[Rfam]
The record is a 387-nucleotide part of an RNA from Candidatus Desulfofervidus auxilii, which matches "Bacterial large subunit ribosomal RNA" in Rfam.
RNA sequence: GAUAAAGGGAGUGAGAAUCUCCCUCGCCGUAAGCCUAAGGUUUCCUGGGUAAAGCUCGUCUGCCCAGGGUUAGGCGGUCCCUAAGCCAAGGCCGAAAGGCGUAGGUGAUGGAAAGCAGGUUAAUAUUCCUGCCCCACCAGAGUAGCGUUAUUACCGAUGGGGGGACGCAGGAAGGUAGUCCAGCCAGGUGUUGGAUGUCCUGGUUUAAGGUAGUAGGCGGGAAGGAUAGGCAAAUCCGUCCUUCCAUUAACGCCGAGAGCCGAGUACGAGGCCUUCGGGCCAUAAAGUGGAUGAGCCUAUACUGCCAAGAAAAGCCUCUAGGGAGUUACUCUGGUGACCGUACCGCAAACCGACACAGGUAGGCGGGGAUAAGUGUCCCAAGGCGCU
Numbered sequence: 001g002a003u004a005a006a007g008g009g010a011g012u013g014a015g016a017a018u019c020u021c022c023c024u025c026g027c028c029g030u031a032a033g034c035c036u037a038a039g040g041u042u043u044c045c046u047g048g049g050u051a052a053a054g055c056u057c058g059u060c061u062g063c064c065c066a067g068g069g070u071u072a073g074g075c076g077g078u079c080c081c082u083a084a085g086c087c088a089a090g091g092c093c094g095a096a097a098g099g100c101g102u103a104g105g106u107g108a109u110g111g112a113a114a115g116c117a118g119g120u121u122a123a124u125a126u127u128c129c130u131g132c133c134c135c136a137c138c139a140g141a142g143u144a145g146c147g148u149u150a151u152u153a154c155c156g157a158u159g160g161g162g163g164g165a166c167g168c169a170g171g172a173a174g175g176u177a178g179u180c181c182a183g184c185c186a187g188g189u190g191u192u193g194g195a196u197g198u199c200c201u202g203g204u205u206u207a208a209g210g211u212a213g214u215a216g217g218c219g220g221g222a223a224g225g226a227u228a229g230g231c232a233a234a235u236c237c238g239u240c241c242u243u244c245c246a247u248u249a250a251c252g253c254c255g256a257g258a259g260c261c262g263a264g265u266a267c268g269a270g271g272c273c274u275u276c277g278g279g280c281c282a283u284a285a286a287g288u289g290g291a292u293g294a295g296c297c298u299a300u301a302c303u304g305c306c307a308a309g310a311a312a313a314g315c316c317u318c319u320a321g322g323g324a325g326u327u328a329c330u331c332u333g334g335u336g337a338c339c340g341u342a343c344c345g346c347a348a349a350c351c352g353a354c355a356c357a358g359g360u361a362g363g364c365g366g367g368g369a370u371a372a373g374u375g376u377c378c379c380a381a382g383g384c385g386c387u
Stems, first nucleotide, its partner, number of pairs: 006024006025385004033364004039344002044068006053061002075340004080111002085106003089102001091100003115132005135336011154322002159318004167305004173298003178292005183204006205266001209261003216254003221244007229237002268283001270281004350359002366379004
Rfam links the family to the GO terms ribosome and structural constituent of ribosome. Taxonomically the source falls in Candidatus Desulfofervidus (Bacteria, Pseudomonadati, Thermodesulfobacteriota, Candidatus Desulfofervidales). The family's consensus secondary structure is taken from published work.